[Rfam]
RNA sequence: AAGUCGUAUGUGAGAAUUGGAGGGGACUAAACAAAUUACAAUCUCUCUAUCUCAAUGAGAAACUCAUAAUUUGUUUAGUUUCCUCCAAUAUCUCAUCUCCGACAU
Dot-bracket structure: ...(((.(..((((.((((((.((((((((.(((((((............................))))))).)))))))).))))))..))))..).)))...